[Rfam]
RNA sequence: CUUGUCGUUUAGCCGACAACAGCCUAGGGGCAGUGCGGGUCUGGUAACGGUCCCGUGCCAAGCGCCCUGACAAUGUAGCCACACCGACCGGUGUGCGUGUGAACCGCAAGGAAUACACGUGAUUCUGCCAGCAACAGGCGGAUGAGGCG
Numbered sequence: 001c002u003u004g005u006c007g008u009u010u011a012g013c014c015g016a017c018a019a020c021a022g023c024c025u026a027g028g029g030g031c032a033g034u035g036c037g038g039g040u041c042u043g044g045u046a047a048c049g050g051u052c053c054c055g056u057g058c059c060a061a062g063c064g065c066c067c068u069g070a071c072a073a074u075g076u077a078g079c080c081a082c083a084c085c086g087a088c089c090g091g092u093g094u095g096c097g098u099g100u101g102a103a104c105c106g107c108a109a110g111g112a113a114u115a116c117a118c119g120u121g122a123u124u125c126u127g128c129c130a131g132c133a134a135c136a137g138g139c140g141g142a143u144g145a146g147g148c149g
Stems, first nucleotide, its partner, number of pairs: 002019006027068005033058007041050003081094005095120004104111002124142006
About this RNA:
Rfam assigns this 149-nucleotide RNA from Sulfuricaulis limicola to the family "Group II catalytic intron D1-D4-7". Rfam describes the family as follows. Group II introns are found in rRNA, tRNA and mRNA of organelles in fungi, plants and protists, and also in mRNA in bacteria. It scores 117 bits against the family's covariance model. The pairing is the family consensus, mapped onto this sequence. On this family, see Chu et al., EMBO J 2001: "Control of branch-site choice by a group II intron".